[Rfam]
Shown here is a 118-nucleotide sequence from Camellia sinensis, a member of the family "Small nucleolar RNA Z278". A search with the family's covariance model found it, with a score of 52 bits. The source organism's lineage runs through Eukaryota, Viridiplantae, Embryophyta, eudicotyledons and Camellia sinensis. Rfam's curators write: snoZ278 is a C/D box small nucleolar RNA. Its methylation guide targets have not been reported. Rfam classes the family as a C/D-box small nucleolar RNA.

RNA sequence: GCCAGUGAUGAUAUAAUCCACUUGUUUGAGGUGUAGUGGAGCCAAGCCCCUGUCUUGACAGGGAGAACCUACUUGGUGAAUCUACAUUUCAUAUGAUUUUACUGGAUUUCACUGAGGC
Numbered sequence: 001g002c003c004a005g006u007g008a009u010g011a012u013a014u015a016a017u018c019c020a021c022u023u024g025u026u027u028g029a030g031g032u033g034u035a036g037u038g039g040a041g042c043c044a045a046g047c048c049c050c051u052g053u054c055u056u057g058a059c060a061g062g063g064a065g066a067a068c069c070u071a072c073u074u075g076g077u078g079a080a081u082c083u084a085c086a087u088u089u090c091a092u093a094u095g096a097u098u099u100u101a102c103u104g105g106a107u108u109u110c111a112c113u114g115a116g117g118c
Base pairs, nucleotide, nucleotide: 001118002117003116048063049062050061051060052059